[Rfam]
RNA sequence: UUAUAAGCAAAAGUCUACUUUUCAGAUUCGUUGAAUAACUGAUGUAUCUGGUCUAUAUUACCAGAUACAUCGGUUAUUCAAUGAAUCUGAAAAGUAGUCUUUUGCUGAUAA
Numbered sequence: 001u002u003a004u005a006a007g008c009a010a011a012a013g014u015c016u017a018c019u020u021u022u023c024a025g026a027u028u029c030g031u032u033g034a035a036u037a038a039c040u041g042a043u044g045u046a047u048c049u050g051g052u053c054u055a056u057a058u059u060a061c062c063a064g065a066u067a068c069a070u071c072g073g074u075u076a077u078u079c080a081a082u083g084a085a086u087c088u089g090a091a092a093a094g095u096a097g098u099c100u101u102u103u104g105c106u107g108a109u110a111a
Base pairs, nucleotide, nucleotide: 002110003109004108006106007105009103010102011101012100013099015097016096017095018094019093020092021091022090023089024088025087027085028084029083030082031081032080033079034078035077036076037075038074039073040072041071042070043069044068049063050062051061052060
This 111-nucleotide RNA sequence from Trifolium medium belongs to the Rfam family "MIR2593 microRNA precursor family". Rfam 15.1 lists 1,262 matches to the family in 6 species. Rfam links the family to the GO terms miRNA-mediated post-transcriptional gene silencing and RISC complex. Lineage of the source: Eukaryota > Tracheophyta > Gunneridae > Pentapetalae > Trifolium.